[Rfam]
RNA sequence: GGGGGUGUAGCUCAGUUUGGUUAGAGCGCCUGCCUGUCACGCAGGAGGUCGCGAGUUCGAGCCUCGUCACUCCCG
Numbered sequence: 001g002g003g004g005g006u007g008u009a010g011c012u013c014a015g016u017u018u019g020g021u022u023a024g025a026g027c028g029c030c031u032g033c034c035u036g037u038c039a040c041g042c043a044g045g046a047g048g049u050c051g052c053g054a055g056u057u058c059g060a061g062c063c064u065c066g067u068c069a070c071u072c073c074c075g
Stems, first nucleotide, its partner, number of pairs: 001074007010027004029045005051067005